[Rfam]
mir-132 microRNA precursor family: an 82-nucleotide RNA sequence from Salmo salar. A reference for the family is Chen et al. (2005), "The developmental miRNA profiles of zebrafish as determined by small RNA cloning", Genes Dev. Pairs were carried over by alignment from the consensus structure, which was predicted with RNAalifold. Taxonomically the source falls in Salmo (Eukaryota, Gnathostomata, Teleostomi, Protacanthopterygii). The family has 50 seed sequences and 1,023 matches in Rfam 15.1.

RNA sequence: CUCCAUGGCGACCGUGGCUUUAGAUUGUUACUGUAGAGACGGUAACAUGGUAACAGUCUACAGCCAUGGUCGUUAGGGUGCA
Numbered sequence: 001c002u003c004c005a006u007g008g009c010g011a012c013c014g015u016g017g018c019u020u021u022a023g024a025u026u027g028u029u030a031c032u033g034u035a036g037a038g039a040c041g042g043u044a045a046c047a048u049g050g051u052a053a054c055a056g057u058c059u060a061c062a063g064c065c066a067u068g069g070u071c072g073u074u075a076g077g078g079u080g081c082a
Stems, first nucleotide, its partner, number of pairs: 012069002015066004023058010